[Rfam]
RNA sequence: AUCAUUUGAGAAGCAGGAAAGGCACCCUGCGCCCAUUAGGGAACCUGAUAUGAUGGAUACGCCGCCCAUCCAAGUGUU
Number, nucleotide and partner (000 for none) at each position: 001a078002u000003c076004a075005u074006u073007u072008g071009a000010g000011a000012a000013g030014c029015a028016g027017g026018a000019a000020a000021g063022g062023c061024a000025c000026c017027c016028u015029g014030c013031g000032c047033c041034c040035a000036u000037u000038a000039g000040g034041g033042a000043a000044c000045c000046u000047g032048a000049u000050a000051u000052g070053a069054u068055g067056g066057a000058u000059a000060c000061g023062c022063c021064g000065c000066c056067c055068a054069u053070c052071c008072a007073a006074g005075u004076g003077u000078u001
About this RNA: The record is a 78-nucleotide RNA, which matches "skipping-rope RNA" in Rfam. Pairs were carried over by alignment from the consensus structure, which is taken from published work.